[Rfam]
RNA sequence: ACAAAGGCUCUUUUAAGAGCCACUAUACAUUUAGCGAAGAGUUUUUU
Numbered sequence: 001a002c003a004a005a006g007g008c009u010c011u012u013u014u015a016a017g018a019g020c021c022a023c024u025a026u027a028c029a030u031u032u033a034g035c036g037a038a039g040a041g042u043u044u045u046u047u
Stems, first nucleotide, its partner, number of pairs: 006021006
The family of this 47-nucleotide RNA sequence from Larimichthys crocea is "Histone 3' UTR stem-loop". By type it is a cis-regulatory element. On this family, see Williams and Marzluff, Nucleic Acids Res 1995: "The sequence of the stem and flanking sequences at the 3' end of histone mRNA are critical determinants for the binding of the stem-loop binding protein". It scores 41 bits against the family's covariance model.